[Rfam]
The record is a 119-nucleotide sequence from Streptomyces kasugaensis, which matches "Streptomyces-metH RNA" in Rfam.
The source organism's lineage runs through Bacteria, Actinomycetes, Kitasatosporales, Streptomycetaceae and Streptomyces.
The family's consensus secondary structure is taken from published work.
RNA sequence: CCGUCCACGCCGUGGAACGGGGAACACCCGCGGCACCCCGCCAGCUACGCUGGCCGGGUGCGCCCUCUACCGGAGGCCGCAAAGCCGACAGCCGUCGCAACCAGGGGAGCAUCUCCAUG
Numbered sequence: 001c002c003g004u005c006c007a008c009g010c011c012g013u014g015g016a017a018c019g020g021g022g023a024a025c026a027c028c029c030g031c032g033g034c035a036c037c038c039c040g041c042c043a044g045c046u047a048c049g050c051u052g053g054c055c056g057g058g059u060g061c062g063c064c065c066u067c068u069a070c071c072g073g074a075g076g077c078c079g080c081a082a083a084g085c086c087g088a089c090a091g092c093c094g095u096c097g098c099a100a101c102c103a104g105g106g107g108a109g110c111a112u113c114u115c116c117a118u119g
Stems, first nucleotide, its partner, number of pairs: 059081004064076004084098002087096003